[Rfam]
Annotation:
A member of the RNA family "Small nucleolar RNA SNORA5" from Echeneis naucrates, 137 nucleotides long. The match comes from Rfam's covariance-model search (86 bits). The source organism's lineage runs through Eukaryota, Eumetazoa, Neopterygii, Neoteleostei and Echeneis. ACA5 is a member of the H/ACA class of snoRNA that guide the sites of modification of uridines to pseudouridines. The family's consensus secondary structure was predicted with RNAfold. Rfam 15.1 lists 2,226 matches to the family in 629 species.
RNA sequence: UGCAGCCUUGUCAAAUUCAGUGCCUCCUCCUCAGUGGAAGCCACUGGCCUAAAUGGCUGCCACAGUGAAGCUGUAGCUCAUGGGCCCCACUACCCUCUAACCUGGCUGCUGGGGAUAAAUAUGUGCUACACACAAAU
Numbered sequence: 001u002g003c004a005g006c007c008u009u010g011u012c013a014a015a016u017u018c019a020g021u022g023c024c025u026c027c028u029c030c031u032c033a034g035u036g037g038a039a040g041c042c043a044c045u046g047g048c049c050u051a052a053a054u055g056g057c058u059g060c061c062a063c064a065g066u067g068a069a070g071c072u073g074u075a076g077c078u079c080a081u082g083g084g085c086c087c088c089a090c091u092a093c094c095c096u097c098u099a100a101c102c103u104g105g106c107u108g109c110u111g112g113g114g115a116u117a118a119a120u121a122u123g124u125g126c127u128a129c130a131c132a133c134a135a136a137u
Stems, first nucleotide, its partner, number of pairs: 002060004018046005024040002027037002073129005078123001085114005